[Rfam]
RNA sequence: GAUAAGGGGAGUGAAAAACUUCCCCGCCGGAAGAUCAAGGUUUCCUGUCCAACGCUAAUCGGGACAGGGUUAGUCGGCCCCUAAGGCGAGGCAGAAAUGCGUAGUCGAUGGGAAGCGCGUUAAUAUUCGUGCACCGACUGUUGCUGCGAUGGAGGGACGGAGUAGGCUAGGCGAGCACGGCGUUGGUUGUCCGUGUUUAAGCUUGUAGGCUGGUGACUUAGGUAAAUCCGGGUCGCUAAGGCUGAGAGGUGAUGACGAGUCCUCUUUUGGACGAAGUCGUUGAUGCCAUGCUUCCAAGAAAAUCUUCUAAGCUUCAGGUAACAGUUGACCGUACUGUAAACCGACACAGGUGAUCAGGUAGAGAAUACCAAGGCGCU
Numbered sequence: 001g002a003u004a005a006g007g008g009g010a011g012u013g014a015a016a017a018a019c020u021u022c023c024c025c026g027c028c029g030g031a032a033g034a035u036c037a038a039g040g041u042u043u044c045c046u047g048u049c050c051a052a053c054g055c056u057a058a059u060c061g062g063g064a065c066a067g068g069g070u071u072a073g074u075c076g077g078c079c080c081c082u083a084a085g086g087c088g089a090g091g092c093a094g095a096a097a098u099g100c101g102u103a104g105u106c107g108a109u110g111g112g113a114a115g116c117g118c119g120u121u122a123a124u125a126u127u128c129g130u131g132c133a134c135c136g137a138c139u140g141u142u143g144c145u146g147c148g149a150u151g152g153a154g155g156g157a158c159g160g161a162g163u164a165g166g167c168u169a170g171g172c173g174a175g176c177a178c179g180g181c182g183u184u185g186g187u188u189g190u191c192c193g194u195g196u197u198u199a200a201g202c203u204u205g206u207a208g209g210c211u212g213g214u215g216a217c218u219u220a221g222g223u224a225a226a227u228c229c230g231g232g233u234c235g236c237u238a239a240g241g242c243u244g245a246g247a248g249g250u251g252a253u254g255a256c257g258a259g260u261c262c263u264c265u266u267u268u269g270g271a272c273g274a275a276g277u278c279g280u281u282g283a284u285g286c287c288a289u290g291c292u293u294c295c296a297a298g299a300a301a302a303u304c305u306u307c308u309a310a311g312c313u314u315c316a317g318g319u320a321a322c323a324g325u326u327g328a329c330c331g332u333a334c335u336g337u338a339a340a341c342c343g344a345c346a347c348a349g350g351u352g353a354u355c356a357g358g359u360a361g362a363g364a365a366u367a368c369c370a371a372g373g374c375g376c377u
Stems, first nucleotide, its partner, number of pairs: 006024006025375004033355004039335002044068006053061002075331003080111002085106003089102001091100003115132005135327011146312002151307005159294004165287003170281005175196006197255002201250004208243003213236007221229002259272004341350002357369004

This 377-nucleotide part of an RNA from Saccharophagus degradans belongs to the Rfam family "Bacterial large subunit ribosomal RNA".
A search with the family's covariance model found it, with a score of 2876 bits.
The family's consensus secondary structure is taken from published work.